[Rfam]
RNA sequence: GGACGAUGAUGACAACAAGGAAGGUCUCGUUCGACAGAUUGGCCUAUCAGGCCAUGUUGACCAUUUCAGAAAGAUCACCACCCAUAAUCAGAUGUCC
Numbered sequence: 001g002g003a004c005g006a007u008g009a010u011g012a013c014a015a016c017a018a019g020g021a022a023g024g025u026c027u028c029g030u031u032c033g034a035c036a037g038a039u040u041g042g043c044c045u046a047u048c049a050g051g052c053c054a055u056g057u058u059g060a061c062c063a064u065u066u067c068a069g070a071a072a073g074a075u076c077a078c079c080a081c082c083c084a085u086a087a088u089c090a091g092a093u094g095u096c097c
Stems, first nucleotide, its partner, number of pairs: 001097004046055002
This 97-nucleotide RNA from Marchantia polymorpha belongs to the Rfam family "Small nucleolar RNA Z43". Rfam links the family to the GO terms RNA processing and nucleolus. A search with the family's covariance model found it, with a score of 53 bits. The family has 7 seed sequences and 859 matches in Rfam 15.1. For this family Rfam cites "The high diversity of snoRNAs in plants: identification and comparative study of 120 snoRNA genes from Oryza sativa" (Chen et al., Nucleic Acids Res, 2003). The family's consensus secondary structure was predicted with PFOLD. The organism belongs to Marchantia polymorpha, within Eukaryota.